[Rfam]
RNA sequence: CACUUGUUAGUAGGAUAUUUCUUACAAAAAAUGUCUGAACAUAUGAACUCCAUAGUGAUUUCAGGGCAAUGCUGAGAUAAGCU
Numbered sequence: 001c002a003c004u005u006g007u008u009a010g011u012a013g014g015a016u017a018u019u020u021c022u023u024a025c026a027a028a029a030a031a032u033g034u035c036u037g038a039a040c041a042u043a044u045g046a047a048c049u050c051c052a053u054a055g056u057g058a059u060u061u062c063a064g065g066g067c068a069a070u071g072c073u074g075a076g077a078u079a080a081g082c083u
Base pairs, nucleotide, nucleotide: 003081004080005079006078007077008076
The family of this 83-nucleotide RNA sequence from Calidris pygmaea is "Small nucleolar RNA SNORD72". The base pairs follow the family's consensus structure. Rfam describes the family as follows. snoRNA HBII-240 belongs to the CD family of snoRNAs. It is the human orthologue of the mouse MBII-240 and is predicted to guide 2'O-ribose methylation of the large 28S rRNA at residue U4590. The literature on the family includes a 2001 paper in EMBO J by Huttenhofer et al., "RNomics: an experimental approach that identifies 201 candidates for novel, small, non-messenger RNAs in mouse".